[Rfam]
RNA sequence: AGGUGAAUAUGAUGAAAGAAAAUACAAAAAAAGAUGAGUGAUUAUCGAAUAUUAUAUAUUUGAUAUGAUCAAUUUGUAUCGCUACGUUCUUUCUGAUUCGUCU
Numbered sequence: 001a002g003g004u005g006a007a008u009a010u011g012a013u014g015a016a017a018g019a020a021a022a023u024a025c026a027a028a029a030a031a032a033g034a035u036g037a038g039u040g041a042u043u044a045u046c047g048a049a050u051a052u053u054a055u056a057u058a059u060u061u062g063a064u065a066u067g068a069u070c071a072a073u074u075u076g077u078a079u080c081g082c083u084a085c086g087u088u089c090u091u092u093c094u095g096a097u098u099c100g101u102c103u
Base pairs, nucleotide, nucleotide: 004100005099006098007097
Small nucleolar RNA R32/R81/Z41: a 103-nucleotide RNA sequence from Lupinus angustifolius. Rfam links the family to the GO terms nucleolus and RNA processing. On this family, see Barneche et al., J Mol Biol 2001: "Identification of 66 box C/D snoRNAs in Arabidopsis thaliana: extensive gene duplications generated multiple isoforms predicting new ribosomal RNA 2'-O-methylation sites". Rfam 15.1 lists 238 matches to the family in 139 species. By type it is a C/D-box small nucleolar RNA.